[Rfam]
STnc490 Hfq binding RNA: a 118-nucleotide sequence from Phascolarctobacterium sp. CAG:266. The organism belongs to Phascolarctobacterium, within Bacteria. It scores 62 bits against the family's covariance model.
RNA sequence: AACCCCGUGUUAGACGCGGGGUUUCGGAAAGCUUAAGUGAUAAAGAAAAUAUAUAAAAAAUUCCUCCUUUGAUAAAAUAAAAUUGCGGUCUGCCAAUCGCAAAAUAUCAAAGGAGGAA
Numbered sequence: 001a002a003c004c005c006c007g008u009g010u011u012a013g014a015c016g017c018g019g020g021g022u023u024u025c026g027g028a029a030a031g032c033u034u035a036a037g038u039g040a041u042a043a044a045g046a047a048a049a050u051a052u053a054u055a056a057a058a059a060a061u062u063c064c065u066c067c068u069u070u071g072a073u074a075a076a077a078u079a080a081a082a083u084u085g086c087g088g089u090c091u092g093c094c095a096a097u098c099g100c101a102a103a104a105u106a107u108c109a110a111a112g113g114a115g116g117a118a
Base pairs, nucleotide, nucleotide: 001023002022003021004020005019006018007017008016009015010014028041031038032037061118062117063116064115065114066113067112068111069110070109071108072107073106083102084101085100086099087098088097089096